Description
Rfam assigns this 81-nucleotide RNA from Clostridium thailandense to the family "c-di-GMP-I-GGC riboswitch aptamer". The family's consensus secondary structure is taken from published work. Taxonomically the source falls in Clostridium (Bacteria, Bacillati, Bacillota, Clostridia). A search with the family's covariance model found it, with a score of 65 bits.
[Rfam]
RNA sequence: AUCGAUAAUGGCAAACUUACCGAAAGGUAAGGACGCAAAGCUAUAGGGCCUUUCGCAAGAAUGGCAGCCUGGCCACCGAAC
Numbered sequence: 001a002u003c004g005a006u007a008a009u010g011g012c013a014a015a016c017u018u019a020c021c022g023a024a025a026g027g028u029a030a031g032g033a034c035g036c037a038a039a040g041c042u043a044u045a046g047g048g049c050c051u052u053u054c055g056c057a058a059g060a061a062u063g064g065c066a067g068c069c070u071g072g073c074c075a076c077c078g079a080a081c
Base pairs, nucleotide, nucleotide: 003078004077011036012035016031017030018029019028020027021026034067040073041072042071045070046069047068048065049064050063